[Rfam]
RNA sequence: UCUCCCGCUUCACCUCCCUGAGCGGGCGCCUCACGCCGGUGAGGACUUUCGCCCCCGACCGCCCCCUGGUCGGGGGCUUUUAUU
Numbered sequence: 001u002c003u004c005c006c007g008c009u010u011c012a013c014c015u016c017c018c019u020g021a022g023c024g025g026g027c028g029c030c031u032c033a034c035g036c037c038g039g040u041g042a043g044g045a046c047u048u049u050c051g052c053c054c055c056c057g058a059c060c061g062c063c064c065c066c067u068g069g070u071c072g073g074g075g076g077c078u079u080u081u082a083u084u
Stems, first nucleotide, its partner, number of pairs: 004026006029044006052076010
Shown here is an 84-nucleotide RNA from Thauera terpenica, a member of the family "Burkholderia RNA 7 (anti-hemB)". The organism belongs to Thauera terpenica, within Bacteria. From the family's description: This RNA motif was identified by computational search in b-proteobacteria Burkholderia. Co-purified with Hfq, expression confirmed by Northern blot. A reference for the family is Weinberg et al. (2007), "Identification of 22 candidate structured RNAs in bacteria using the CMfinder comparative genomics pipeline", Nucleic Acids Res.